[Rfam]
RNA sequence: AGGACAAUACUUUCAGGGAUCAUUUCUAUAGAUUUCUUACUUGGAACUGUGUUUCAUGAAUGUUUGUUUCCCAACCCACGAUGAUGAGCUUUGGUGUUUCUUUUACAGCCUAAUCUGGCACAUAGUGGUGAUUCGUUCACGUGCUCUGUGCUAUUGAUGAAGUGUUCUUUAUUGGUUUAUGGAUAUUGAGGAAAGCAUCAUGAUCUAAGUGGU
Number, nucleotide and partner (000 for none) at each position: 001a041002g040003g000004a038005c000006a035007a034008u000009a000010c031011u030012u000013u000014c000015a027016g026017g025018g024019a000020u000021c000022a000023u000024u018025u017026c016027u015028a000029u000030a011031g010032a000033u000034u007035u006036c000037u000038u004039a000040c002041u001042u000043g000044g000045a000046a000047c000048u000049g063050u062051g061052u060053u059054u000055c000056a000057u000058g000059a053060a052061u051062g050063u049064u000065u000066g000067u000068u000069u000070c000071c000072c000073a000074a000075c000076c212077c211078a210079c209080g000081a000082u000083g000084a000085u000086g000087a000088g000089c000090u000091u000092u000093g000094g201095u200096g199097u000098u197099u000100c195101u194102u193103u192104u191105a000106c000107a000108g163109c162110c000111u000112a000113a000114u000115c000116u000117g152118g151119c150120a149121c000122a000123u000124a145125g144126u143127g000128g140129u139130g138131a137132u000133u000134c000135g000136u000137u131138c130139a129140c128141g000142u000143g126144c125145u124146c000147u000148g000149u120150g119151c118152u117153a000154u000155u000156g000157a000158u000159g000160a000161a000162g109163u108164g000165u000166u185167c000168u183169u182170u181171a180172u000173u000174g000175g000176u000177u000178u000179a000180u171181g170182g169183a168184u000185a166186u000187u000188g000189a000190g000191g104192a103193a102194a101195g100196c000197a098198u000199c096200a095201u094202g000203a000204u000205c000206u000207a000208a000209g079210u078211g077212g076213u000
Shown here is a 213-nucleotide RNA sequence from Triplophysa rosa, a member of the family "Small nucleolar RNA U3". Gene Ontology terms of the family: nucleolus and RNA processing. The family's consensus secondary structure is taken from published work. Small nucleolar RNAs (snoRNAs) are involved in the processing and modification of rRNA in the nucleolus. A search with the family's covariance model found it, with a score of 94 bits. The family is grouped with related families in Rfam's "U3 clan".